[Rfam]
Shown here is a 72-nucleotide RNA from Gouania willdenowi, a member of the family "Small nucleolar RNA SNORD24". Rfam links the family to the GO terms RNA processing and nucleolus. NCBI's taxonomy places the organism under Eukaryota, Craniata, Eurypterygia, Ctenosquamata, Gouania. The family's RNA type in Rfam is C/D-box small nucleolar RNA. A search with the family's covariance model found it, with a score of 54 bits. On this family, see Qu et al., Nucleic Acids Res 1995: "U24, a novel intron-encoded small nucleolar RNA with two 12 nt long, phylogenetically conserved complementarities to 28S rRNA".

RNA sequence: UGCAAAUGAUGUGACAUGUUUUUUUAAUCUGAUCAGUUAUGCUGACUAUUUCCCACCAAGAUCACUGAUGCA
Dot-bracket structure: ((((................................................................))))